[Rfam]
Rfam assigns this 90-nucleotide RNA from Thermoclostridium caenicola to the family "pan motif". It scores 39 bits against the family's covariance model. NCBI's taxonomy places the organism under Bacteria, Bacillati, Bacillota, Eubacteriales, Thermoclostridium.
RNA sequence: CUGUCGGUAUUUCUGCAGAAAACCGAACAUAAUACAACCAAUAACCAAAAAUAUUUCGACUUAUAUCCCGCAAGGGAAUGAGAACGGAGG
Dot-bracket structure: .(((((((.((........))))))).))...........................((.(((((.(((......))))))))..))....